A member of the RNA family "Streptococcus sRNA SpR18" from Anaerococcus nagyae, 131 nucleotides long.

[Rfam]
RNA sequence: AUCAAUAGUUACAGAAGAUUAAAAACUGUAACUGGGAUUAAAAUGGAAACAUUUGUAAAAAAGAAUAAAUUGAAUAAUAGUUCCAAGUGGUUUACAUUUGGACAAAAAAUAGAGACUUUGAAUUAGUUUGU
Numbered sequence: 001a002u003c004a005a006u007a008g009u010u011a012c013a014g015a016a017g018a019u020u021a022a023a024a025a026c027u028g029u030a031a032c033u034g035g036g037a038u039u040a041a042a043a044u045g046g047a048a049a050c051a052u053u054u055g056u057a058a059a060a061a062a063g064a065a066u067a068a069a070u071u072g073a074a075u076a077a078u079a080g081u082u083c084c085a086a087g088u089g090g091u092u093u094a095c096a097u098u099u100g101g102a103c104a105a106a107a108a109a110u111a112g113a114g115a116c117u118u119u120g121a122a123u124u125a126g127u128u129u130g131u
Stems, first nucleotide, its partner, number of pairs: 006034009036124002043119001045117002051066004080103002083101007
Dot-bracket structure: .....(((((((((...........))))))))).((.....(.((....((((........)))).............((.(((((((.....)))))))))............)).)...)).......
Rfam 15.1 lists 63 matches to the family in 54 species.